RNA sequence: UGGGUGGGCUACUAGCGCGGGUCUGGCGGAGCGCGGCGGCGCUCGGAGAUCGCGAGGCGACCGGGAGCGGCUGGGUCCCCGGCGGCGCGCCCCUCGGCUAGGCCGGGAGCCGCGCCAGUCGGUGCCCCCAGCCGAGCGCGGUCCGCCUCCCUCGCAGCGAUCAGCCGUCCGGAGUGUGGCCAGAGGGCGUGCCGGAUCCACCAGGGGCGCCGCCGCCUGCGUUCGCAGGCCGCGGGUGAAGAAGAAAGCACGGCCUCGCUCGGCCCGGAGCGAAGAGGUGACCCGGAGCGAAUAGGGGUCCCGGAGCGAAGAGGCGGUCGGAAGCGAAGAGGUGGCCCUAAGUGAAGAGGUGGCCCGGAGCGAGGAAAUG
Numbered sequence: 001u002g003g004g005u006g007g008g009c010u011a012c013u014a015g016c017g018c019g020g021g022u023c024u025g026g027c028g029g030a031g032c033g034c035g036g037c038g039g040c041g042c043u044c045g046g047a048g049a050u051c052g053c054g055a056g057g058c059g060a061c062c063g064g065g066a067g068c069g070g071c072u073g074g075g076u077c078c079c080c081g082g083c084g085g086c087g088c089g090c091c092c093c094u095c096g097g098c099u100a101g102g103c104c105g106g107g108a109g110c111c112g113c114g115c116c117a118g119u120c121g122g123u124g125c126c127c128c129c130a131g132c133c134g135a136g137c138g139c140g141g142u143c144c145g146c147c148u149c150c151c152u153c154g155c156a157g158c159g160a161u162c163a164g165c166c167g168u169c170c171g172g173a174g175u176g177u178g179g180c181c182a183g184a185g186g187g188c189g190u191g192c193c194g195g196a197u198c199c200a201c202c203a204g205g206g207g208c209g210c211c212g213c214c215g216c217c218u219g220c221g222u223u224c225g226c227a228g229g230c231c232g233c234g235g236g237u238g239a240a241g242a243a244g245a246a247a248g249c250a251c252g253g254c255c256u257c258g259c260u261c262g263g264c265c266c267g268g269a270g271c272g273a274a275g276a277g278g279u280g281a282c283c284c285g286g287a288g289c290g291a292a293u294a295g296g297g298g299u300c301c302c303g304g305a306g307c308g309a310a311g312a313g314g315c316g317g318u319c320g321g322a323a324g325c326g327a328a329g330a331g332g333u334g335g336c337c338c339u340a341a342g343u344g345a346a347g348a349g350g351u352g353g354c355c356c357g358g359a360g361c362g363a364g365g366a367a368a369u370g
Base pairs, nucleotide, nucleotide: 020104021103022102023101024100025099026098027097038093039092041090042089044052045051046050061082062081063080064079065078067076068075144352145351146350147349148348149347166189167188168187169186170185205224206223207222208221209220210219212217257272258271259270260269261268
Record summary
Rfam assigns this 370-nucleotide RNA from Tursiops truncatus to the family "Bag-1 internal ribosome entry site (IRES)". About the family: This family represents the bag-1 internal ribosome entry site (IRES). When expressed the BAG-1 protein is known to enhance the anti-apoptotic properties of Bcl-2. Although bag-1 translation usually occurs via a cap-dependent mechanism it has been found to contain a IRES in its 5' UTR. Translation via the IRES has been found to be common following heat shock when cap-dependent scanning is compromised. Rfam links the family to the GO term ribosome binding. The base pairs follow the family's consensus structure, which was predicted with PFOLD.